Shown here is a 90-nucleotide sequence from Ornithorhynchus anatinus, a member of the family "mir-7 microRNA precursor family". Rfam describes the family as follows. This family represents the microRNA (miRNA) precursor mir-7. Pairs were carried over by alignment from the consensus structure, which was predicted with PFOLD. Lineage of the source: Eukaryota > Opisthokonta > Teleostomi > Tetrapoda > Ornithorhynchus.
[Rfam]
RNA sequence: GGCCGGGCCCCGUCUGGAAGACUAGUGAUUUUGUUGUUCUCUAGCUGACCGCACGACAACAAAUCCCAGUCUGCCUGACGGUGCCCGGUG
Numbered sequence: 001g002g003c004c005g006g007g008c009c010c011c012g013u014c015u016g017g018a019a020g021a022c023u024a025g026u027g028a029u030u031u032u033g034u035u036g037u038u039c040u041c042u043a044g045c046u047g048a049c050c051g052c053a054c055g056a057c058a059a060c061a062a063a064u065c066c067c068a069g070u071c072u073g074c075c076u077g078a079c080g081g082u083g084c085c086c087g088g089u090g
Stems, first nucleotide, its partner, number of pairs: 002089007010081005016075002019072005025067001027065005033060006